Description
A member of the RNA family "terC RNA" from Brucella anthropi, 58 nucleotides long. NCBI's taxonomy places the organism under Bacteria, Pseudomonadati, Alphaproteobacteria, Hyphomicrobiales, Brucella anthropi. The family's consensus secondary structure is taken from published work. By type it is a cis-regulatory element. It is one of the family's seed sequences.

[Rfam]
RNA sequence: AUGCAGCGCCGGGCCCCUCUGGUCAUGGCUACCGCUAUGGCGAUGUCGGGGCUGCUCC
Numbered sequence: 001a002u003g004c005a006g007c008g009c010c011g012g013g014c015c016c017c018u019c020u021g022g023u024c025a026u027g028g029c030u031a032c033c034g035c036u037a038u039g040g041c042g043a044u045g046u047c048g049g050g051g052c053u054g055c056u057c058c
Stems, first nucleotide, its partner, number of pairs: 006052002009049004022041008